A member of the RNA family "Proteobacterial sRNA psRNA2" from Burkholderia gladioli, 212 nucleotides long. Taxonomically the source falls in Burkholderia gladioli (Bacteria, Pseudomonadota, Burkholderiaceae, Burkholderia). For this family Rfam cites "Computational prediction and transcriptional analysis of sRNAs in Nitrosomonas europaea" (Gvakharia et al., FEMS Microbiol Lett, 2010). Rfam's curators put it in the seed alignment.

RNA sequence: GGGUUACCCCUUGGCGCCUGCGCGCUGUUUUGAUGAAGAUUCGCACCUCUAUCAAAACGGGUAACUCCACCUCUUGGCAAGGCCUUGCUGUCAGAUCAAGUCUGAACUUCUACACUUCAAUACCUACAUGCAGUGGCCAGCGAGGCCGGUUGACAAAAAGAGGGCGUUUUCAGUUCUGUCGCUAAAUGGCCGAUAGAGCGUCGAAUGUGUCU
Numbered sequence: 001g002g003g004u005u006a007c008c009c010c011u012u013g014g015c016g017c018c019u020g021c022g023c024g025c026u027g028u029u030u031u032g033a034u035g036a037a038g039a040u041u042c043g044c045a046c047c048u049c050u051a052u053c054a055a056a057a058c059g060g061g062u063a064a065c066u067c068c069a070c071c072u073c074u075u076g077g078c079a080a081g082g083c084c085u086u087g088c089u090g091u092c093a094g095a096u097c098a099a100g101u102c103u104g105a106a107c108u109u110c111u112a113c114a115c116u117u118c119a120a121u122a123c124c125u126a127c128a129u130g131c132a133g134u135g136g137c138c139a140g141c142g143a144g145g146c147c148g149g150u151u152g153a154c155a156a157a158a159a160g161a162g163g164g165c166g167u168u169u170u171c172a173g174u175u176c177u178g179u180c181g182c183u184a185a186a187u188g189g190c191c192g193a194u195a196g197a198g199c200g201u202c203g204a205a206u207g208u209g210u211c212u
Stems, first nucleotide, its partner, number of pairs: 001067007009060002014025004027058009037048002069210002075148003081141001083140001085139001090107002092104005110133002114129001165203002176196005181190002